[Rfam]
Nucleotides: 101
Base pairs, nucleotide, nucleotide: 010025011024012023013022016092017091018090020088021087071082072081073080074079
Number, partner (000 for none) and nucleotide at each position: 001000c002000u003000u004000g005000g006000c007000u008000c009000c010025g011024g012023c013022g014000a015000u016092g017091g018090a019000u020088c021087c022013c023012g024011c025010c026000a027000g028000g029000g030000u031000u032000c033000g034000a035000u036000u037000g038000u039000c040000g041000g042000c043000c044000g045000c046000g047000u048000c049000g050000g051000c052000g053000g054000c055000c056000g057000g058000c059000g060000c061000g062000g063000c064000c065000c066000g067000a068000a069000c070000c071082g072081c073080c074079g075000a076000c077000a078000c079074c080073g081072g082071c083000u084000g085000a086000u087021g088020g089000u090018u091017c092016c093000u094000u095000u096000c097000c098000g099000a100000u101000c